[Rfam]
RNA sequence: CACUCCUGUUUCUGCCUCAUAUUCCCUUGCUCCAUGGAAUAAUGGGUUCUGGUGAUGGAGAAGAUCAAGCCCGUCGUCGUCUCUGCGAUUUGAUACUUUGUUGAGUUCGAGGACGGGAUCGUGAAAACGCAUAUACCCAGGGCUGCCAGACAGGUUGGCGGCUCUGAAUUGUCGUUUCUACAUCU
Numbered sequence: 001c002a003c004u005c006c007u008g009u010u011u012c013u014g015c016c017u018c019a020u021a022u023u024c025c026c027u028u029g030c031u032c033c034a035u036g037g038a039a040u041a042a043u044g045g046g047u048u049c050u051g052g053u054g055a056u057g058g059a060g061a062a063g064a065u066c067a068a069g070c071c072c073g074u075c076g077u078c079g080u081c082u083c084u085g086c087g088a089u090u091u092g093a094u095a096c097u098u099u100g101u102u103g104a105g106u107u108c109g110a111g112g113a114c115g116g117g118a119u120c121g122u123g124a125a126a127a128c129g130c131a132u133a134u135a136c137c138c139a140g141g142g143c144u145g146c147c148a149g150a151c152a153g154g155u156u157g158g159c160g161g162c163u164c165u166g167a168a169u170u171g172u173c174g175u176u177u178c179u180a181c182a183u184c185u
Stems, first nucleotide, its partner, number of pairs: 003060004016046004020041006070117006077110003081105003085101001123178004129173001131172002139165005146158004
RNA: Small nucleolar RNA snR43